[Rfam]
Nucleotides: 092
Stems, first nucleotide, its partner, number of pairs: 001092007012027002015024003029045005048066005069083004
Number, partner (000 for none) and nucleotide at each position: 001092g002091g003090a004089g005088g006087c007086g008000u009000c010000a011000g012027g013026g014000u015024u016023c017022c018000u019000g020000g021000u022017g023016g024015g025000c026013c027012u028000c029045c030044c031043c032042g033041c034000c035000u036000u037000c038000a039000a040000a041033g042032c043031g044030g045029g046000u047000g048066g049065g050064g051063c052062g053000g054000a055000g056000u057000a058000u059000c060000u061000c062052c063051g064050u065049c066048c067000g068000g069083c070082g071081g072080g073000u074000u075000c076000g077000a078000u079000u080072c081071c082070c083069g084000u085000c086007c087006g088005c089004c090003u091002c092001c
This 92-nucleotide sequence from Streptomyces beijiangensis belongs to the Rfam family "Selenocysteine transfer RNA". The family is grouped with related families in Rfam's "tRNA clan".